[Rfam]
RNA sequence: GCUGGGGACGGUGGCGCGUUCCUGUAACUCUGCGACUGGAGAGCUUAGGUUGUCGGAGGGGCGGCCGUCGGGAUUAGCGCUGGCGCACGUUGCAUGUUGAACGGGUGUCCGCACUGAGCUCGGUGUCAAUAUGGUUGUCGACGGGAAGCUGACGACGACCAGGUUGAUUAAAGAGGAGCGCAAGGCUCAGGACGGAAACGUAGCAGGCAAAAGCUCCCGCGCCGCGCAGUGGUGGGAUCGCACCUGUGAAUGUGCGUUCGUCUGCGCCCCGAUUAGGUCGUUCCGACCCAAUCUUUU
Numbered sequence: 001g002c003u004g005g006g007g008a009c010g011g012u013g014g015c016g017c018g019u020u021c022c023u024g025u026a027a028c029u030c031u032g033c034g035a036c037u038g039g040a041g042a043g044c045u046u047a048g049g050u051u052g053u054c055g056g057a058g059g060g061g062c063g064g065c066c067g068u069c070g071g072g073a074u075u076a077g078c079g080c081u082g083g084c085g086c087a088c089g090u091u092g093c094a095u096g097u098u099g100a101a102c103g104g105g106u107g108u109c110c111g112c113a114c115u116g117a118g119c120u121c122g123g124u125g126u127c128a129a130u131a132u133g134g135u136u137g138u139c140g141a142c143g144g145g146a147a148g149c150u151g152a153c154g155a156c157g158a159c160c161a162g163g164u165u166g167a168u169u170a171a172a173g174a175g176g177a178g179c180g181c182a183a184g185g186c187u188c189a190g191g192a193c194g195g196a197a198a199c200g201u202a203g204c205a206g207g208c209a210a211a212a213g214c215u216c217c218c219g220c221g222c223c224g225c226g227c228a229g230u231g232g233u234g235g236g237a238u239c240g241c242a243c244c245u246g247u248g249a250a251u252g253u254g255c256g257u258u259c260g261u262c263u264g265c266g267c268c269c270c271g272a273u274u275a276g277g278u279c280g281u282u283c284c285g286a287c288c289c290a291a292u293c294u295u296u297u
Base pairs, nucleotide, nucleotide: 001044002043003042004023005022006021007020008019009018010017028041029040030039047294048293049292050291051290052289058284059283060282061281062280063279067273068272069271070270071269072268077267078266079265080264082262083261084260085259087257088256089255091254092253093252094251095250097248101247102246103245104244105243106242107241108240109236110235112234113233114232115231116230118227119226121224122223123222124221125220126219127166128165129164130163132161133160134159135158136157137156138155139154140153142151143150144149168172175217176216177215178214179213185208186207187206192201193200194199
This 297-nucleotide sequence from Leptotrombidium deliense belongs to the Rfam family "Metazoan signal recognition particle RNA".
Pairs were carried over by alignment from the consensus structure, which is taken from published work.
On this family, see Wild et al., Curr Opin Struct Biol 2002: "Towards the structure of the mammalian signal recognition particle".
Taxonomically the source falls in Leptotrombidium (Eukaryota, Arthropoda, Chelicerata, Acariformes).